[Rfam]
RNA sequence: UUCCAUCUUCGGGGCAGGGUGAAAUUCCCGACCGGCGGUAUUGAAGACAUGAUCUUCUCAGCCCGUGAGCGAGCAAGGCGUUGCUUGCUGAUUUCGUGAGAUUCGAAAGCCGACAGUAUAGUCUGGAUGGGAGAAGAUGGCG
Numbered sequence: 001u002u003c004c005a006u007c008u009u010c011g012g013g014g015c016a017g018g019g020u021g022a023a024a025u026u027c028c029c030g031a032c033c034g035g036c037g038g039u040a041u042u043g044a045a046g047a048c049a050u051g052a053u054c055u056u057c058u059c060a061g062c063c064c065g066u067g068a069g070c071g072a073g074c075a076a077g078g079c080g081u082u083g084c085u086u087g088c089u090g091a092u093u094u095c096g097u098g099a100g101a102u103u104c105g106a107a108a109g110c111c112g113a114c115a116g117u118a119u120a121g122u123c124u125g126g127a128u129g130g131g132a133g134a135a136g137a138u139g140g141c142g
Stems, first nucleotide, its partner, number of pairs: 003140008017029003031122002033112002035066004061110002069088003092108005114125003
Rfam assigns this 142-nucleotide RNA sequence from Exiguobacterium chiriqhucha to the family "FMN riboswitch aptamer (RFN element)".
The family's consensus secondary structure is taken from published work.
The match comes from Rfam's covariance-model search (120 bits).